The record is a 73-nucleotide RNA sequence from Chrysochloris asiatica, which matches "Small nucleolar RNA SNORD107" in Rfam. The family has 13 seed sequences and 144 matches in Rfam 15.1.

[Rfam]
RNA sequence: GGUUCAUGAUGAUAAGGGACCUUAUCUGAACAUAAUGAUUUAAAAUUUGAGCGGAAAAUGGCGCUCUGAAAUC
Numbered sequence: 001g002g003u004u005c006a007u008g009a010u011g012a013u014a015a016g017g018g019a020c021c022u023u024a025u026c027u028g029a030a031c032a033u034a035a036u037g038a039u040u041u042a043a044a045a046u047u048u049g050a051g052c053g054g055a056a057a058a059u060g061g062c063g064c065u066c067u068g069a070a071a072u073c
Stems, first nucleotide, its partner, number of pairs: 001073004
Overview: The family's consensus secondary structure was predicted with WAR. It scores 76 bits against the family's covariance model. NCBI's taxonomy places the organism under Eukaryota, Mammalia, Eutheria, Afrotheria, Chrysochloris.